Background
Rfam assigns this 69-nucleotide sequence from Acipenser ruthenus to the family "Small nucleolar RNA SNORD58". It is annotated as a C/D-box small nucleolar RNA. The family has 33 seed sequences and 2,484 matches in Rfam 15.1. It scores 55 bits against the family's covariance model. For this family Rfam cites "Purified box C/D snoRNPs are able to reproduce site-specific 2'-O-methylation of target RNA in vitro" (Galardi et al., Mol Cell Biol, 2002). Clan: SNORD58 clan. Rfam's curators write: snoRNA U58 is found in introns 1, 3 and 6 of the ribosomal protein RPL17 gene in humans. Taxonomically the source falls in Acipenser (Eukaryota, Vertebrata, Gnathostomata, Actinopteri).
[Rfam]
RNA sequence: UUGCAAUGAUGACCAACUUAGGAGACCUUUGGAGUUAACCAUGACAAUACCUAUAUAAAGCUGAGCAAC
Number, nucleotide and partner (000 for none) at each position: 001u068002u067003g066004c065005a000006a000007u000008g000009a000010u000011g000012a000013c000014c000015a000016a000017c000018u000019u000020a000021g000022g000023a000024g000025a000026c000027c000028u000029u000030u000031g000032g000033a000034g000035u000036u000037a000038a000039c000040c000041a000042u000043g000044a000045c000046a000047a000048u000049a000050c000051c000052u000053a000054u000055a000056u000057a000058a000059a000060g000061c000062u000063g000064a000065g004066c003067a002068a001069c000